[Rfam]
RNA: Eukaryotic large subunit ribosomal RNA, nucleotides 1 to 448
Organism: Chironomus tentans
Nucleotides: 448
Stems, first nucleotide, its partner, number of pairs: 024055001025053005035042002065072002076103004086094002106344004113155004118150002120146004124141005160285002164282001166280001169278002182268004187262001190258006200217001202216002205214002228232001235245002294315007321338005378385002401412004
Number, partner (000 for none) and nucleotide at each position: 001000c002000g003000a004000c005000c006000u007000c008000a009000a010000c011000u012000c013000a014000u015000g016000u017000g018000a019000g020000a021000c022000u023000a024055c025053c026052c027051c028050c029049u030000g031000a032000a033000u034000u035042u036041a037000a038000g039000c040000a041036u042035a043000u044000u045000a046000a047000u048000u049029a050028g051027g052026g053025g054000a055024g056000g057000a058000a059000a060000a061000g062000a063000a064000a065072c066071c067000a068000a069000c070000a071066g072065g073000g074000a075000u076103u077102c078101c079100c080000u081000u082000a083000g084000u085000a086094g087093u088000g089000g090000c091000g092000a093087a094086c095000g096000a097000a098000a099000c100079g101078g102077g103076a104000u105000c106344a107343g108342c109341c110000c111000a112000u113155c114154a115153c116152g117000u118150a119149g120146g121145a122144u123143c124141a125140u126139a127138g128137g129000c130000u131000u132000a133000a134000u135000u136000g137128u138127c139126u140125a141124u142000u143123g144122a145121u146120c147000g148000a149119u150118u151000c152116c153115g154114u155113g156000u157000a158000a159000a160285g161284g162000a163000g164282g165000g166280u167000c168000c169278a170277u171000u172000a173000u174000c175000u176000u177000g178000c179000a180000c181000a182268u183267a184266u185265a186000a187262a188000c189000a190258u191257c192256a193255u194254a195253u196000u197000u198000a199000a200217g201000u202216c203215c204000a205214g206213c207000u208000u209000g210000a211000a212000u213206g214205c215203g216202g217200c218000u219000c220000a221000a222000u223000a224000u225000a226000c227000c228232c229000a230000c231000a232228g233000a234000g235245g236244g237000u238000g239000c240000c241000a242000g243000g244236c245235c246000c247000g248000u249000a250000u251000a252000u253195g254194u255193a256192u257191g258190a259000u260000g261000c262187u263000u264000g265185u266184g267183u268182a269000a270000g271000u272000g273000g274000g275000c276000u277170a278169u279000c280166a281000a282164c283000u284161c285160c286000u287000a288000g289000g290000a291000g292000u293000c294315a295314u296313g297312u298311u299310g300309c301000u302000u303000g304000a305000u306000a307000g308000u309300g310299c311298a312297g313296c314295a315294u316000u317000a318000a319000g320000u321338g322337g323336g324335a325334g326000g327000u328000a329000a330000a331000c332000u333000c334325c335324u336323u337322c338321u339000a340000a341109g342108g343107c344106u345000a346000a347000a348000u349000a350000u351000u352000a353000c354000c355000a356000u357000g358000a359000g360000a361000c362000c363000g364000a365000u366000a367000g368000c369000g370000a371000a372000c373000a374000a375000g376000u377000a378385c379384c380000g381000u382000g383000a384379g385378g386000g387000a388000a389000a390000g391000u392000u393000g394000a395000a396000a397000a398000g399000c400000a401412c402411u403410c404409u405000g406000a407000a408000u409404a410403g411402a412401g413000a414000g415000u416000c417000a418000a419000a420000u421000a422000g423000u424000a425000c426000g427000u428000g429000a430000a431000a432000c433000u434000g435000u436000c437000u438000a439000g440000g441000g442000g443000c444000u445000c446000a447000a448000a